Description:
A. fumigatus sRNA Afu_309: a 288-nucleotide sequence from Rhynchosporium graminicola. It scores 149 bits against the family's covariance model. Pairs were carried over by alignment from the consensus structure, which was predicted with WAR.

RNA sequence: CUUAUUUCCACAACCACAGAUUUGUGCCCAGCAGUCCCUUCAACCUUCGGGUUGUAAGGUUGAUUGCUGAGGCAGCUCGUUCGUCCUAUGGAGCCACCUGCCUUCACAGGCUUUCUAUGGUGUCAAUUUCCGAUCGACAGAUCUCAGAGCAAUCGGGCACCACGAAGCUUGAAUUCGCUGUAAAAGGCUUGAGCUCAGUGGACGGUGUUCCGAAGACGUCACAUUCCAAAUCCUUUCGCCGAGACCGUCGGUUGGUGAGGUUAAGGGCUAACCGUUUCGACUACAUUA
Dot-bracket structure: .................((((((((((((((.(((((((((((((....))))).))))..)))).))).)))........((..(..(((.(((.......................))).)))......)..))))))))))..........(((......(......((.(((((........))..))).)).........).)))....(.((..((........(((((..(((..((((...)))).....))).)))))......))..)).).......